[Rfam]
RNA sequence: AGAGAUUUGAGAAGAGUUGCUCCUAGUACGAGAGGACCGGAGUGAACGAACCUCUGGUGUUCCGGUUGUCAUGCCAAUGGCAUUGCCGGGUAGCUAUGUUCGGACAGGAUAACCGCUGAAAGCAUCUAAGCGGGAAGCCCCCUUCAAGAUGAGAUCUCUCUGAUACUUCGAGUAUCCUGUAGGGCCCUUGAAGACUACAAGGUUGAUAGGCAAGGUGUGGAAGCGUUGUGAGGCGUUGAGCUAACUUGUACUAAUUGCCCGUGAG
Number, nucleotide and partner (000 for none) at each position: 001a159002g158003a157004g156005a155006u154007u153008u152009g000010a000011g145012a144013a143014g142015a000016g000017u045018u044019g043020c042021u041022c040023c039024u000025a000026g000027u000028a000029c000030g000031a000032g000033a000034g000035g000036a000037c000038c000039g023040g022041a021042g020043u019044g018045a017046a000047c102048g101049a100050a099051c098052c000053u000054c000055u096056g095057g094058u000059g000060u000061u000062c089063c088064g087065g086066u085067u082068g081069u080070c079071a078072u077073g000074c000075c000076a000077a072078u071079g070080g069081c068082a067083u000084u000085g066086c065087c064088g063089g062090g000091u000092a000093g000094c057095u056096a055097u000098g051099u050100u049101c048102g047103g000104a000105c000106a000107g139108g138109a000110u000111a000112a000113c133114c132115g131116c130117u129118g000119a000120a000121a000122g000123c000124a000125u000126c000127u000128a000129a117130g116131c115132g114133g113134g000135a000136a000137g000138c108139c107140c000141c000142c014143u013144u012145c011146a000147a000148g000149a000150u000151g000152a008153g007154a006155u005156c004157u003158c002159u001160c000161u000162g176163a175164u174165a173166c172167u000168u000169c000170g000171a000172g166173u165174a164175u163176c162177c000178u000179g262180u000181a000182g260183g259184g258185c257186c202187c201188u200189u199190g198191a000192a000193g000194a000195c000196u000197a000198c190199a189200a188201g187202g186203u000204u000205g000206a000207u253208a252209g251210g249211c248212a247213a246214g245215g000216u000217g241218u000219g000220g237221a000222a000223g236224c235225g234226u233227u232228g000229u000230g000231a000232g227233g226234c225235g224236u223237u220238g000239a000240g000241c217242u000243a000244a000245c214246u213247u212248g211249u210250a000251c209252u208253a207254a000255u000256u000257g185258c184259c183260c182261g000262u179263g000264a000265g000